This 97-nucleotide sequence from Hesseltinella vesiculosa belongs to the Rfam family "tRNA".
It is annotated as a transfer RNA.
A reference for the family is Lowe and Eddy (1997), "tRNAscan-SE: a program for improved detection of transfer RNA genes in genomic sequence", Nucleic Acids Res.
About the family: Transfer RNA (tRNA) molecules are approximately 80 nucleotides in length.
The base pairs follow the family's consensus structure, which is taken from published work.
Taxonomically the source falls in Hesseltinella (Eukaryota, Mucoromycota, Mucoromycotina, Mucorales).

[Rfam]
RNA sequence: UCCCUAGUGGCCUAGUUGGUUUAAGGCCUCGUGCUUAUAGCUUUGUUACUAUACCAGAGCCACGCGAAAAUCGCGAGUUCGAUCCUCGCCUAGGGAA
Numbered sequence: 001u002c003c004c005u006a007g008u009g010g011c012c013u014a015g016u017u018g019g020u021u022u023a024a025g026g027c028c029u030c031g032u033g034c035u036u037a038u039a040g041c042u043u044u045g046u047u048a049c050u051a052u053a054c055c056a057g058a059g060c061c062a063c064g065c066g067a068a069a070a071u072c073g074c075g076a077g078u079u080c081g082a083u084c085c086u087c088g089c090c091u092a093g094g095g096a097a
Stems, first nucleotide, its partner, number of pairs: 001096007010027004029067005073089005
Rfam 15.1 lists 5,335,975 matches to the family in 14,413 species.